[Rfam]
The record is a 78-nucleotide sequence from Hemibagrus wyckioides, which matches "mir-17 microRNA precursor family" in Rfam. The match comes from Rfam's covariance-model search (58 bits). The base pairs follow the family's consensus structure, which was predicted with RNAalifold. About the family: This family represents the microRNA (miRNA) precursor mir-17, family, which includes mir-20, mir-91, and mir-103. miRNAs are transcribed as ~70nt precursors (modelled here) and subsequently processed by the Dicer enzyme to give a ~22nt product. In this case the mature sequence comes from the 3' arm of the precursor. The extents of the hairpin precursors are not generally known and are estimated based on hairpin prediction.
RNA sequence: CUGAGUGUUAAAAGUGCUGUUUGUGCAGGUAGCUGAACACAAGACCUACUGCAGAACCAGCACUUCACACACACUGCU
Numbered sequence: 001c002u003g004a005g006u007g008u009u010a011a012a013a014g015u016g017c018u019g020u021u022u023g024u025g026c027a028g029g030u031a032g033c034u035g036a037a038c039a040c041a042a043g044a045c046c047u048a049c050u051g052c053a054g055a056a057c058c059a060g061c062a063c064u065u066c067a068c069a070c071a072c073a074c075u076g077c078u
Stems, first nucleotide, its partner, number of pairs: 004075004009069001012065008021056002024053003028050005